[Rfam]
RNA: Bacterial RNase P class A
Organism: Roseburia sp. CAG:50
RNA sequence: CAAGUAAGACAAAUGAUCGCGGCUGCAAGUGUCGAAAGACCGCAGGUGAGGAAAGUCCGGGCUUCGCAGGGCAGGAUGCCGGAUAACAUCCGGUGGAGGUGACUCCAAGGACAGUGCAACAGAAAGAUACCGCGUUAGCAAUGAGCCAUGCGCAGCAAUUUGAGAGACCGCAUGGCGGAAACAGGAUUCUGUGUAUUGCUCAUUGUUAACGUAAGGGUGGAAUGGCAGUGUAAGAGACUACCGCCCGGCUGGUAACAGUCGGGGCACAUGUAAACCCCAUCCGAAGCAAGACCGAAACAAAGCGUUGACGUGGCCCGCCAGCUUUAGGUAGGUCGCUUGAGGUAACUGGCAACAGUUAUCCUGGAUAGAUGAUCAUUCACGACAUAACCCGGCUUAUCGUUUUGCUUGAAUU
Numbered sequence: 001c002a003a004g005u006a007a008g009a010c011a012a013a014u015g016a017u018c019g020c021g022g023c024u025g026c027a028a029g030u031g032u033c034g035a036a037a038g039a040c041c042g043c044a045g046g047u048g049a050g051g052a053a054a055g056u057c058c059g060g061g062c063u064u065c066g067c068a069g070g071g072c073a074g075g076a077u078g079c080c081g082g083a084u085a086a087c088a089u090c091c092g093g094u095g096g097a098g099g100u101g102a103c104u105c106c107a108a109g110g111a112c113a114g115u116g117c118a119a120c121a122g123a124a125a126g127a128u129a130c131c132g133c134g135u136u137a138g139c140a141a142u143g144a145g146c147c148a149u150g151c152g153c154a155g156c157a158a159u160u161u162g163a164g165a166g167a168c169c170g171c172a173u174g175g176c177g178g179a180a181a182c183a184g185g186a187u188u189c190u191g192u193g194u195a196u197u198g199c200u201c202a203u204u205g206u207u208a209a210c211g212u213a214a215g216g217g218u219g220g221a222a223u224g225g226c227a228g229u230g231u232a233a234g235a236g237a238c239u240a241c242c243g244c245c246c247g248g249c250u251g252g253u254a255a256c257a258g259u260c261g262g263g264g265c266a267c268a269u270g271u272a273a274a275c276c277c278c279a280u281c282c283g284a285a286g287c288a289a290g291a292c293c294g295a296a297a298c299a300a301a302g303c304g305u306u307g308a309c310g311u312g313g314c315c316c317g318c319c320a321g322c323u324u325u326a327g328g329u330a331g332g333u334c335g336c337u338u339g340a341g342g343u344a345a346c347u348g349g350c351a352a353c354a355g356u357u358a359u360c361c362u363g364g365a366u367a368g369a370u371g372a373u374c375a376u377u378c379a380c381g382a383c384a385u386a387a388c389c390c391g392g393c394u395u396a397u398c399g400u401u402u403u404g405c406u407u408g409a410a411u412u
Base pairs, nucleotide, nucleotide: 001408002407003406004405005404006403007402008401009400010399011397012377013376014375015374016373017372018371020048021047023045024044025043026042053395054394055393057392058391059390060389061388062286063285064284065283069315070314072312074282075281076280077279078278079093080092081091082090083089094108095106096105097104098103109277110276114275115274116271117270118269130216131215132212133211134210135209136208137207138206139205140204141203142202143201144200145199146198224242225241227239228238229237243265244263245262246261247260248259249258250257251256290334291333292332293331299325300324301323302322303321307319309317310316341360342359343358344357345356346355347354348353